RNA sequence: GCUUCCUUAGCUCAGUCGGUAGAGCACCACCAUGGUAAGGUGGGGGUCAGCGGUUCAAGUCCGCUAGGAAGCU
Numbered sequence: 001g002c003u004u005c006c007u008u009a010g011c012u013c014a015g016u017c018g019g020u021a022g023a024g025c026a027c028c029a030c031c032a033u034g035g036u037a038a039g040g041u042g043g044g045g046g047u048c049a050g051c052g053g054u055u056c057a058a059g060u061c062c063g064c065u066a067g068g069a070a071g072c073u
Stems, first nucleotide, its partner, number of pairs: 001072007010025004027043005049065005

Source information:
Rfam assigns this 73-nucleotide RNA from Terribacillus sp. AE2B 122 to the family "tRNA". The family's consensus secondary structure is taken from published work.